[Rfam]
RNA sequence: AUCGAAAUUCAACGCAACUUUCGUAUAAUUCCGGGGAUCGGCCCGGAAGUCUCUACUCGGUCACCGUAAAUGACCUGGCUACGAAAGUUCGGAGCGCAAGC
Numbered sequence: 001a002u003c004g005a006a007a008u009u010c011a012a013c014g015c016a017a018c019u020u021u022c023g024u025a026u027a028a029u030u031c032c033g034g035g036g037a038u039c040g041g042c043c044c045g046g047a048a049g050u051c052u053c054u055a056c057u058c059g060g061u062c063a064c065c066g067u068a069a070a071u072g073a074c075c076u077g078g079c080u081a082c083g084a085a086a087g088u089u090c091g092g093a094g095c096g097c098a099a100g101c
Stems, first nucleotide, its partner, number of pairs: 018087008029048007057077001059075005
The record is a 101-nucleotide RNA from Paenibacillus albicereus, which matches "Purine riboswitch aptamer" in Rfam. Lineage of the source: Bacteria > Bacillota > Bacilli > Paenibacillaceae > Paenibacillus. Gene Ontology term of the family: purine nucleobase biosynthetic process. The family has 133 seed sequences and 4,097 matches in Rfam 15.1.